Shown here is a 103-nucleotide RNA from Hydrogenibacillus schlegelii, a member of the family "Glycine riboswitch aptamer". Taxonomically the source falls in Hydrogenibacillus (Bacteria, Bacillati, Bacilli, Thermicanales). It scores 61 bits against the family's covariance model.
RNA sequence: AUGACGGGCGGGAGAGAGUCCGGCUCGUCCGGCGCCGAAGGAGCAAGCCGCACGGCGGCAGGCGUGCGGUGAAACUCUCAGGCCCAUGGAUCCCGCACCGGAC
Numbered sequence: 001a002u003g004a005c006g007g008g009c010g011g012g013a014g015a016g017a018g019u020c021c022g023g024c025u026c027g028u029c030c031g032g033c034g035c036c037g038a039a040g041g042a043g044c045a046a047g048c049c050g051c052a053c054g055g056c057g058g059c060a061g062g063c064g065u066g067c068g069g070u071g072a073a074a075c076u077c078u079c080a081g082g083c084c085c086a087u088g089g090a091u092c093c094c095g096c097a098c099c100g101g102a103c
Stems, first nucleotide, its partner, number of pairs: 006098001008096006020032004034083003037079002041077003047070008